[Rfam]
RNA sequence: GUUGAAAAAGGCAAACUAUUCGAAAGAGUAGGACGCAAAGCCGAGGAUCUAAGGUGCAUCAAGCAUGCCUAUGAUAGCCUAGCUGCCAAAA
Numbered sequence: 001g002u003u004g005a006a007a008a009a010g011g012c013a014a015a016c017u018a019u020u021c022g023a024a025a026g027a028g029u030a031g032g033a034c035g036c037a038a039a040g041c042c043g044a045g046g047a048u049c050u051a052a053g054g055u056g057c058a059u060c061a062a063g064c065a066u067g068c069c070u071a072u073g074a075u076a077g078c079c080u081a082g083c084u085g086c087c088a089a090a091a
Base pairs, nucleotide, nucleotide: 003088004087011036012035016031017030018029019028020027021026034077039084040083041082044080045079046078047075048074049073

The family of this 91-nucleotide RNA from Ornithinibacillus bavariensis is "c-di-GMP-I-GGC riboswitch aptamer".
The match comes from Rfam's covariance-model search (69 bits).
A reference for the family is Kulshina et al. (2009), "Recognition of the bacterial second messenger cyclic diguanylate by its cognate riboswitch", Nat Struct Mol Biol.